Source information
The record is a 310-nucleotide RNA sequence from Tenacibaculum sp. MAR_2009_124, which matches "Bacterial RNase P class A" in Rfam. Taxonomically the source falls in Tenacibaculum (Bacteria, Bacteroidota, Flavobacteriia, Flavobacteriales). The family's consensus secondary structure is taken from published work.

RNA sequence: UAAGCAGCUCUAUCUUAUCGACUUAUGCUUUUAUAAGUAGGAAAGUCCGGACACCAUAGAGCAAACAUAGCGGAUAACAUCCGUCCAGUGUAAACUGAGGACAAGUGCAACAGAAAGAAUGUACAGGUAAUGCUGUAGUGAAACCAGGUAAACUCUAUGUGGUGCAAUGUCACGUAUAUUAGAGAUUGAGUGCCGCUCGCACGAUUCUAAGGGGUAGACAGAUUGACUUUAAUAGCAAUAUUAAGGCUAGAUAAAUGAUAAGAACCUUUUUUAAAGGACACAGGAUCCGGCUUAUUGAGCUGCUUUUUAU
Numbered sequence: 001u002a003a004g005c006a007g008c009u010c011u012a013u014c015u016u017a018u019c020g021a022c023u024u025a026u027g028c029u030u031u032u033a034u035a036a037g038u039a040g041g042a043a044a045g046u047c048c049g050g051a052c053a054c055c056a057u058a059g060a061g062c063a064a065a066c067a068u069a070g071c072g073g074a075u076a077a078c079a080u081c082c083g084u085c086c087a088g089u090g091u092a093a094a095c096u097g098a099g100g101a102c103a104a105g106u107g108c109a110a111c112a113g114a115a116a117g118a119a120u121g122u123a124c125a126g127g128u129a130a131u132g133c134u135g136u137a138g139u140g141a142a143a144c145c146a147g148g149u150a151a152a153c154u155c156u157a158u159g160u161g162g163u164g165c166a167a168u169g170u171c172a173c174g175u176a177u178a179u180u181a182g183a184g185a186u187u188g189a190g191u192g193c194c195g196c197u198c199g200c201a202c203g204a205u206u207c208u209a210a211g212g213g214g215u216a217g218a219c220a221g222a223u224u225g226a227c228u229u230u231a232a233u234a235g236c237a238a239u240a241u242u243a244a245g246g247c248u249a250g251a252u253a254a255a256u257g258a259u260a261a262g263a264a265c266c267u268u269u270u271u272u273a274a275a276g277g278a279c280a281c282a283g284g285a286u287c288c289g290g291c292u293u294a295u296u297g298a299g300c301u302g303c304u305u306u307u308u309a310u
Stems, first nucleotide, its partner, number of pairs: 002305009012295001013263007021038007043293003047290005052164004061197001065160005070084005085099001086097004100155002105153002107149002122137005168220004179210005190202004227246008